[Rfam]
RNA: Yersinia sRNA 251
Organism: Serratia sp. DD3
RNA sequence: UGUAAGCAUUGAGUGUACGUUGGCACAAAAUGGAACGUACACAGUCCUGUUUAUCAAACUGGAUAAUACCGAUCAACUCAUCCUCAGCAAAGCGCGCCAGCGCAUCACUCAGACCCGAUUUGACUCCUCGCGGCAAAUCGCAUUGGGUAAUAUCGCCAUUAACAAUGACUGUCACAUUCUCACCCAAACGUGUC
Numbered sequence: 001u002g003u004a005a006g007c008a009u010u011g012a013g014u015g016u017a018c019g020u021u022g023g024c025a026c027a028a029a030a031u032g033g034a035a036c037g038u039a040c041a042c043a044g045u046c047c048u049g050u051u052u053a054u055c056a057a058a059c060u061g062g063a064u065a066a067u068a069c070c071g072a073u074c075a076a077c078u079c080a081u082c083c084u085c086a087g088c089a090a091a092g093c094g095c096g097c098c099a100g101c102g103c104a105u106c107a108c109u110c111a112g113a114c115c116c117g118a119u120u121u122g123a124c125u126c127c128u129c130g131c132g133g134c135a136a137a138u139c140g141c142a143u144u145g146g147g148u149a150a151u152a153u154c155g156c157c158a159u160u161a162a163c164a165a166u167g168a169c170u171g172u173c174a175c176a177u178u179c180u181c182a183c184c185c186a187a188a189c190g191u192g193u194c
Base pairs, nucleotide, nucleotide: 002054003053004052005051006050007049008048014041015040016039017038018037019036061078062077064075066073067072083112084111086109087108093102094101095100113193114192116190117189119188120187121186122185126133127132137166138165140163144158145157146156171183172182174180